[Rfam]
RNA sequence: UAUUACAGCUACGGGAGCCUAGAGGACUAGGCUGAGAAGAGGACUAUUCCGUCACAGACCGUGUAACCUGAUCUGGAUCAUGCCAGCGGAGGGAAGACUGUCUUGUUAAUUG
Numbered sequence: 001u002a003u004u005a006c007a008g009c010u011a012c013g014g015g016a017g018c019c020u021a022g023a024g025g026a027c028u029a030g031g032c033u034g035a036g037a038a039g040a041g042g043a044c045u046a047u048u049c050c051g052u053c054a055c056a057g058a059c060c061g062u063g064u065a066a067c068c069u070g071a072u073c074u075g076g077a078u079c080a081u082g083c084c085a086g087c088g089g090a091g092g093g094a095a096g097a098c099u100g101u102c103u104u105g106u107u108a109a110u111u112g
Stems, first nucleotide, its partner, number of pairs: 006100003010096001011062004017032005039055001041053002067092003073086004
The record is a 112-nucleotide sequence from Anaerobacillus alkaliphilus, which matches "TPP riboswitch aptamer (THI element)" in Rfam. Taxonomically the source falls in Anaerobacillus (Bacteria, Bacillati, Bacillota, Bacilli).